[Rfam]
Background: This 222-nucleotide RNA from Streptacidiphilus fuscans belongs to the Rfam family "Actinobacteria sRNA Ms_IGR-5". NCBI's taxonomy places the organism under Bacteria, Bacillati, Actinomycetota, Actinomycetes, Streptacidiphilus. By type it is a small RNA. The pairing is the family consensus, mapped onto this sequence.
RNA sequence: ACACAGAAGGGAGGUGAUCCUGUAGUGAGUACAUUCAGGACGCGUGAGGUGGCUGCGCGCUAGCGCCGCCCCGCCCGCAGCGGCUGGUGCAGCGGGCACUUCCACAGCGCGCAAGCGCAAUCCAUAGCAGUCACCCGGCCCGCAGGCCCACCGGAUCGUCCUCCGGUGCCCACGUCCCCGUUCCUAGGUCGGGGAUGGGAGCAAGCCUGCGGGCCGUCUGCG
Numbered sequence: 001a002c003a004c005a006g007a008a009g010g011g012a013g014g015u016g017a018u019c020c021u022g023u024a025g026u027g028a029g030u031a032c033a034u035u036c037a038g039g040a041c042g043c044g045u046g047a048g049g050u051g052g053c054u055g056c057g058c059g060c061u062a063g064c065g066c067c068g069c070c071c072c073g074c075c076c077g078c079a080g081c082g083g084c085u086g087g088u089g090c091a092g093c094g095g096g097c098a099c100u101u102c103c104a105c106a107g108c109g110c111g112c113a114a115g116c117g118c119a120a121u122c123c124a125u126a127g128c129a130g131u132c133a134c135c136c137g138g139c140c141c142g143c144a145g146g147c148c149c150a151c152c153g154g155a156u157c158g159u160c161c162u163c164c165g166g167u168g169c170c171c172a173c174g175u176c177c178c179c180g181u182u183c184c185u186a187g188g189u190c191g192g193g194g195a196u197g198g199g200a201g202c203a204a205g206c207c208u209g210c211g212g213g214c215c216g217u218c219u220g221c222g
Base pairs, nucleotide, nucleotide: 014056015055016054018052058117059116060115061114063112064111067109068108069107136216137215138214139213140212141211142210143209144208145207146206147205150167151166152165153164154163155162